[Rfam]
RNA: c-di-AMP riboswitch aptamer (ydaO/yuaA leader)
Organism: Streptacidiphilus pinicola
RNA sequence: AACGACGAGUCACCAGGGCCGGAGCGGGGGAACCAGGUAAGCCGCCCCUGCCCGUUUUCCGGUCGGGGCUCGGGGUGAAGCCGCGUGUGCGCGCGGCCGGGCCACACUUCUCCGGUCCGAAUCCGACAGCUCACCUCGCAGGCGUCGGAGAGGCCCGAC
Dot-bracket structure: ..((.(...((..........))((((((....(.....................................)(((.....((((........))))..((((............))))...))).........)))))).).))...............
Numbered sequence: 001a002a003c004g005a006c007g008a009g010u011c012a013c014c015a016g017g018g019c020c021g022g023a024g025c026g027g028g029g030g031a032a033c034c035a036g037g038u039a040a041g042c043c044g045c046c047c048c049u050g051c052c053c054g055u056u057u058u059c060c061g062g063u064c065g066g067g068g069c070u071c072g073g074g075g076u077g078a079a080g081c082c083g084c085g086u087g088u089g090c091g092c093g094c095g096g097c098c099g100g101g102c103c104a105c106a107c108u109u110c111u112c113c114g115g116u117c118c119g120a121a122u123c124c125g126a127c128a129g130c131u132c133a134c135c136u137c138g139c140a141g142g143c144g145u146c147g148g149a150g151a152g153g154c155c156c157g158a159c
Stems, first nucleotide, its partner, number of pairs: 003144002006141001010023002024139006034072001073124003081096004099118004